[Rfam]
RNA sequence: GGACAAAUAGCAUAACGGCAUUGCGUAGGAUUGCAACUUGCAAUCUAUCCUGAGGUUCUGGGUUCGAAUCCCAGUUUGUCCU
Numbered sequence: 001g002g003a004c005a006a007a008u009a010g011c012a013u014a015a016c017g018g019c020a021u022u023g024c025g026u027a028g029g030a031u032u033g034c035a036a037c038u039u040g041c042a043a044u045c046u047a048u049c050c051u052g053a054g055g056u057u058c059u060g061g062g063u064u065c066g067a068a069u070c071c072c073a074g075u076u077u078g079u080c081c082u
Stems, first nucleotide, its partner, number of pairs: 001081007010024003026052005058074005
Dot-bracket structure: (((((((..(((.........))).(((((.................))))).....(((((.......)))))))))))).